[Rfam]
RNA sequence: CUGACAGAAGAGAGUGAGCACACACGGGCAAUUGUAUAAAGCUAUACCUUAGCGUGAUGUGUGCUCACUUCUCUUUCUGUCAG
Numbered sequence: 001c002u003g004a005c006a007g008a009a010g011a012g013a014g015u016g017a018g019c020a021c022a023c024a025c026g027g028g029c030a031a032u033u034g035u036a037u038a039a040a041g042c043u044a045u046a047c048c049u050u051a052g053c054g055u056g057a058u059g060u061g062u063g064c065u066c067a068c069u070u071c072u073c074u075u076u077c078u079g080u081c082a083g
Base pairs, nucleotide, nucleotide: 001083002082003081004080005079006078007077008076009075010073011072012071013069014068015067016066017065018064019063020062021061023059024058